Shown here is a 519-nucleotide part of an RNA from Ktedonobacter racemifer, a member of the family "Bacterial small subunit ribosomal RNA". Pairs were carried over by alignment from the consensus structure, which is taken from published work. A reference for the family is Yusupov et al. (2001), "Crystal structure of the ribosome at 5.5 A resolution", Science. Rfam links the family to the GO terms structural constituent of ribosome and ribosome. The family is grouped with related families in Rfam's "SSU clan". The sequence is in the family's curated seed alignment. Taxonomically the source falls in Ktedonobacter racemifer (Bacteria, Ktedonobacteria, Ktedonobacterales, Ktedonobacter).

[Rfam]
RNA sequence: UGAAUGGCGAGUUUGAUCCUGGCUCAGGAUAAACGCUGGCGGCGUGCCUAACACAUGCAAGUCGAACGCCCUCUCGCAAGAGAGGGAGUGGCGGACGGGUGAGUAACACAUGGGUACCUGCCCCGAGGUGAGGAAUACCGGCGAGAAAUCGCCGACAAUACCGCAUAUGUUCCUCCGGGAACAAAGCUCGCAAGGGCGCCUUGGGAUGGGCCUGUGGCCGAUUAGCUUGUUGGUGAGGUAAGAGCUCACCAAGGCCACGAUCGGUAGCUGGUCUGAGAGGAUGGUCAGCCACACUGGGAUUGAGAACGGCCCAGACUCCUACGGGGGGCAGCAGUGAGGAAUUUUCGUCAAUGGGGGCAACCCUGAACGAGCAACGCCGCGUGCAGGAGGACGCUUUUCGGAGUGUAAACUGCUUUUCUUGGGGACGAGUAAGGACGGUACCCAAGGAAUAAGCCCCGGCUAACUACGUGCCAGCAGCCGCGGUAAUACGUAGGGGGCAAGCGUUGUCCGGAGUUAUUG
Numbered sequence: 001u002g003a004a005u006g007g008c009g010a011g012u013u014u015g016a017u018c019c020u021g022g023c024u025c026a027g028g029a030u031a032a033a034c035g036c037u038g039g040c041g042g043c044g045u046g047c048c049u050a051a052c053a054c055a056u057g058c059a060a061g062u063c064g065a066a067c068g069c070c071c072u073c074u075c076g077c078a079a080g081a082g083a084g085g086g087a088g089u090g091g092c093g094g095a096c097g098g099g100u101g102a103g104u105a106a107c108a109c110a111u112g113g114g115u116a117c118c119u120g121c122c123c124c125g126a127g128g129u130g131a132g133g134a135a136u137a138c139c140g141g142c143g144a145g146a147a148a149u150c151g152c153c154g155a156c157a158a159u160a161c162c163g164c165a166u167a168u169g170u171u172c173c174u175c176c177g178g179g180a181a182c183a184a185a186g187c188u189c190g191c192a193a194g195g196g197c198g199c200c201u202u203g204g205g206a207u208g209g210g211c212c213u214g215u216g217g218c219c220g221a222u223u224a225g226c227u228u229g230u231u232g233g234u235g236a237g238g239u240a241a242g243a244g245c246u247c248a249c250c251a252a253g254g255c256c257a258c259g260a261u262c263g264g265u266a267g268c269u270g271g272u273c274u275g276a277g278a279g280g281a282u283g284g285u286c287a288g289c290c291a292c293a294c295u296g297g298g299a300u301u302g303a304g305a306a307c308g309g310c311c312c313a314g315a316c317u318c319c320u321a322c323g324g325g326g327g328g329c330a331g332c333a334g335u336g337a338g339g340a341a342u343u344u345u346c347g348u349c350a351a352u353g354g355g356g357g358c359a360a361c362c363c364u365g366a367a368c369g370a371g372c373a374a375c376g377c378c379g380c381g382u383g384c385a386g387g388a389g390g391a392c393g394c395u396u397u398u399c400g401g402a403g404u405g406u407a408a409a410c411u412g413c414u415u416u417u418c419u420u421g422g423g424g425a426c427g428a429g430u431a432a433g434g435a436c437g438g439u440a441c442c443c444a445a446g447g448a449a450u451a452a453g454c455c456c457c458g459g460c461u462a463a464c465u466a467c468g469u470g471c472c473a474g475c476a477g478c479c480g481c482g483g484u485a486a487u488a489c490g491u492a493g494g495g496g497g498c499a500a501g502c503g504u505u506g507u508c509c510g511g512a513g514u515u516a517u518u519g
Stems, first nucleotide, its partner, number of pairs: 009025005027509004032505006039380006045373002047338001052336003056333003061092003066089002069086007099292003109216007117209002122205007130164001132162002139154006170181004186197003218264003225255003230252008267289004271282004294314005316327004344370001346369003352365005383413004393404004418446006427436001453498005464493005474481002